[Rfam]
RNA sequence: AAGACCCUGCUGAUUCUACUAUUGGUUUUGAACAUUUAUUGUAAAGAUAAUUUUAAACUCUCAUCGAAGAGACACCAGGAUUC
Numbered sequence: 001a002a003g004a005c006c007c008u009g010c011u012g013a014u015u016c017u018a019c020u021a022u023u024g025g026u027u028u029u030g031a032a033c034a035u036u037u038a039u040u041g042u043a044a045a046g047a048u049a050a051u052u053u054u055a056a057a058c059u060c061u062c063a064u065c066g067a068a069g070a071g072a073c074a075c076c077a078g079g080a081u082u083c
Stems, first nucleotide, its partner, number of pairs: 003082002006079004011074002014071004019066001021064002024061002028057002031054002037049004
RNA: mir-1305 microRNA precursor family